[Rfam]
RNA sequence: GGGGCGGCUGCUGCACAAAUUGGGCUGAAGUACUGCUCUCAUUGUCCCUGUACCUCUCUAGAAUAAACUGCUUUUUGGUAAAAUAAAUCUCAUAGAGAUCAAGAUUCAUACAUUCUCAGGGCUGGAAAAU
Number, nucleotide and partner (000 for none) at each position: 001g000002g058003g057004g056005c000006g054007g053008c000009u000010g000011c000012u000013g000014c000015a045016c044017a043018a042019a000020u000021u000022g038023g037024g036025c035026u000027g000028a000029a000030g000031u000032a000033c000034u000035g025036c024037u023038c022039u000040c000041a000042u018043u017044g016045u015046c000047c000048c000049u000050g000051u000052a000053c007054c006055u000056c004057u003058c002059u000060a000061g000062a000063a000064u000065a000066a000067a000068c124069u000070g122071c121072u120073u119074u118075u000076u000077g000078g000079u000080a000081a000082a000083a109084u108085a000086a000087a000088u000089c000090u104091c103092a000093u000094a000095g000096a000097g000098a000099u000100c000101a000102a000103g091104a090105u000106u000107c000108a084109u083110a000111c000112a000113u000114u000115c000116u000117c000118a074119g073120g072121g071122c070123u000124g068125g000126a000127a000128a000129a000130u000
The record is a 130-nucleotide RNA from Cnephaeus nilssonii, which matches "Small Cajal body specific RNA 8" in Rfam.
The family has 22 seed sequences and 955 matches in Rfam 15.1.
A reference for the family is Darzacq et al. (2002), "Cajal body-specific small nuclear RNAs: a novel class of 2'-O-methylation and pseudouridylation guide RNAs", EMBO J.
scaRNAs are a specific class of small nuclear RNAs which localise to the Cajal bodies and guide the modification of RNA polymerase II transcribed spliceosomal RNAs U1, U2, U4, U5 and U12. U92 belong to the H/ACA box class of guide RNAs as it has the predicted hairpin-hinge-hairpin-tail structure, conserved H/ACA-box motifs and is found associated with GAR1.
Gene Ontology terms of the family: Cajal body, nucleolus and RNA processing.
Lineage of the source: Eukaryota > Metazoa > Teleostomi > Chiroptera > Cnephaeus.